[Rfam]
RNA sequence: ACUUAGGUCUUGCAGGACAGGGUAAAGCAGCUUUAAGCCCCGUACCUAAUGGGGCUUUUUGCUAUGUGGGUUUUUGUCACAGGCAGAAACCAGACUGGGGCCUUUGAGCCCUUUUUUU
Numbered sequence: 001a002c003u004u005a006g007g008u009c010u011u012g013c014a015g016g017a018c019a020g021g022g023u024a025a026a027g028c029a030g031c032u033u034u035a036a037g038c039c040c041c042g043u044a045c046c047u048a049a050u051g052g053g054g055c056u057u058u059u060u061g062c063u064a065u066g067u068g069g070g071u072u073u074u075u076g077u078c079a080c081a082g083g084c085a086g087a088a089a090c091c092a093g094a095c096u097g098g099g100g101c102c103u104u105u106g107a108g109c110c111c112u113u114u115u116u117u118u
Stems, first nucleotide, its partner, number of pairs: 035057008098111004

Annotation:
The family of this 118-nucleotide sequence from Echinimonas agarilytica is "Gammaprotebacteria rimP leader". The source organism's lineage runs through Bacteria, Pseudomonadati, Gammaproteobacteria, Echinimonadaceae and Echinimonas. It scores 54 bits against the family's covariance model.